[Rfam]
RNA sequence: GUUAGGCCUUCACGUGGCGUUAUGUCACCCAAUCCCCCCAGGGCAGGAAUGCAGCAAGGGUAAGUGGCCUCUGUCGGGUGCGUGAAGGUUUUCUUUU
Numbered sequence: 001g002u003u004a005g006g007c008c009u010u011c012a013c014g015u016g017g018c019g020u021u022a023u024g025u026c027a028c029c030c031a032a033u034c035c036c037c038c039c040a041g042g043g044c045a046g047g048a049a050u051g052c053a054g055c056a057a058g059g060g061u062a063a064g065u066g067g068c069c070u071c072u073g074u075c076g077g078g079u080g081c082g083u084g085a086a087g088g089u090u091u092u093c094u095u096u097u
Base pairs, nucleotide, nucleotide: 004091005090006089007088008087009086010085011084012083013082014081015078018076019075021073022072024068025067026066027065028064035060036059037058043052044051045050

Shown here is a 97-nucleotide sequence from Bifidobacterium commune, a member of the family "Bacterial small signal recognition particle RNA". NCBI's taxonomy places the organism under Bacteria, Actinomycetota, Actinomycetes, Bifidobacteriales, Bifidobacterium. The family's RNA type in Rfam is non-coding RNA gene.